[Rfam]
RNA sequence: CUGAACCGAUACCGAGGCAGGCUUUCAGCCUGAGGGGAUUAUCCUGCUAAUGCAGACGGCUGCACCGAGUGCAUAACCGAUAUCCCCGCCAUACCUCAACCGCUGUCGCUCCGACGCGCAGGUAUUGUUCA
Numbered sequence: 001c002u003g004a005a006c007c008g009a010u011a012c013c014g015a016g017g018c019a020g021g022c023u024u025u026c027a028g029c030c031u032g033a034g035g036g037g038a039u040u041a042u043c044c045u046g047c048u049a050a051u052g053c054a055g056a057c058g059g060c061u062g063c064a065c066c067g068a069g070u071g072c073a074u075a076a077c078c079g080a081u082a083u084c085c086c087c088g089c090c091a092u093a094c095c096u097c098a099a100c101c102g103c104u105g106u107c108g109c110u111c112c113g114a115c116g117c118g119c120a121g122g123u124a125u126u127g128u129u130c131a
Base pairs, nucleotide, nucleotide: 002131003130004129005128007127008126009125010124011123012122013121018032019031020030021029022028023027034087035086036085037084044055045054046053047052057079058078059077061073062072063071064070065069